A member of the RNA family "c-di-GMP-I-GGC riboswitch aptamer" from Desulfuromonas sp. DDH964, 94 nucleotides long. Its family is annotated with cyclic-di-GMP binding in the Gene Ontology. A reference for the family is Weinberg et al. (2017), "Bioinformatic analysis of riboswitch structures uncovers variant classes with altered ligand specificity", Proc Natl Acad Sci U S A. The base pairs follow the family's consensus structure, which is taken from published work.

RNA sequence: UCCGAUAAUGGCAAACCCGGAGAAAUCCGGGGACGCAAAGCCAUGGGUCCUCGGUUCCGCUGAACGCGGCACACGGAUCGCCAGGUCGCCGAAG
Numbered sequence: 001u002c003c004g005a006u007a008a009u010g011g012c013a014a015a016c017c018c019g020g021a022g023a024a025a026u027c028c029g030g031g032g033a034c035g036c037a038a039a040g041c042c043a044u045g046g047g048u049c050c051u052c053g054g055u056u057c058c059g060c061u062g063a064a065c066g067c068g069g070c071a072c073a074c075g076g077a078u079c080g081c082c083a084g085g086u087c088g089c090c091g092a093a094g
Base pairs, nucleotide, nucleotide: 001094003091004090011036012035016031017030018029019028020027021026034080040086041085042084044083045082046081047078048077049076